The family of this 139-nucleotide RNA is "RT-14 RNA".
The sequence is in the family's curated seed alignment.
The base pairs follow the family's consensus structure, which is taken from published work.
[Rfam]
RNA sequence: CUACGUCAGGAUUAUAUAUUUUACGGAAUAUGUACAAUGAAAGUAUUAGUAUUAAAGAGAUUUAUCCCUUCCUAAUUUAGGUAAACAUGAAUCAGUAAAACACAUGUUAGUACAAAAAUUUGGAAUAUAUGUGUAUUAC
Numbered sequence: 001c002u003a004c005g006u007c008a009g010g011a012u013u014a015u016a017u018a019u020u021u022u023a024c025g026g027a028a029u030a031u032g033u034a035c036a037a038u039g040a041a042a043g044u045a046u047u048a049g050u051a052u053u054a055a056a057g058a059g060a061u062u063u064a065u066c067c068c069u070u071c072c073u074a075a076u077u078u079a080g081g082u083a084a085a086c087a088u089g090a091a092u093c094a095g096u097a098a099a100a101c102a103c104a105u106g107u108u109a110g111u112a113c114a115a116a117a118a119u120u121u122g123g124a125a126u127a128u129a130u131g132u133g134u135a136u137u138a139c
Stems, first nucleotide, its partner, number of pairs: 001043001006040002013034009071081004095139004100134008113122002